Rfam assigns this 124-nucleotide RNA from Octodon degus to the family "Small nucleolar RNA SNORA51".
Pairs were carried over by alignment from the consensus structure, which was predicted with PFOLD.
By type it is an H/ACA-box small nucleolar RNA.
Lineage of the source: Eukaryota > Sarcopterygii > Dipnotetrapodomorpha > Boreoeutheria > Octodon.
RNA sequence: UGCCUCCUGGUGCUUACCACAGGCAGUGUUUUAUGCUGACUGUAUAGAAAAGGGAGGAAAAGUAAAUUUGCCCCAUAUGCACCUCAGCCCAGGCCUUGUCUGUAUUGUGAAUGGGGAAACAGGC
Numbered sequence: 001u002g003c004c005u006c007c008u009g010g011u012g013c014u015u016a017c018c019a020c021a022g023g024c025a026g027u028g029u030u031u032u033a034u035g036c037u038g039a040c041u042g043u044a045u046a047g048a049a050a051a052g053g054g055a056g057g058a059a060a061a062g063u064a065a066a067u068u069u070g071c072c073c074c075a076u077a078u079g080c081a082c083c084u085c086a087g088c089c090c091a092g093g094c095c096u097u098g099u100c101u102g103u104a105u106u107g108u109g110a111a112u113g114g115g116g117a118a119a120c121a122g123g124c
Stems, first nucleotide, its partner, number of pairs: 003057006020042003026036004071116006085102003089098001091096001
ACA51 is a member of the H/ACA class of snoRNA that guide the sites of modification of uridines to pseudouridines. Gene Ontology terms of the family: RNA processing and nucleolus.